[Rfam]
RNA: mir-277 microRNA precursor family
RNA sequence: AUAGUGUUGGUGUGGGUGCCAGGAGGGCAUUUACAUGGGUUUACUGGUUGUUUUCUGUAAAUGCACUAUCUGGUACGACACACCCUCGCUA
Numbered sequence: 001a002u003a004g005u006g007u008u009g010g011u012g013u014g015g016g017u018g019c020c021a022g023g024a025g026g027g028c029a030u031u032u033a034c035a036u037g038g039g040u041u042u043a044c045u046g047g048u049u050g051u052u053u054u055c056u057g058u059a060a061a062u063g064c065a066c067u068a069u070c071u072g073g074u075a076c077g078a079c080a081c082a083c084c085c086u087c088g089c090u091a
Stems, first nucleotide, its partner, number of pairs: 009084003016076008025066001027064009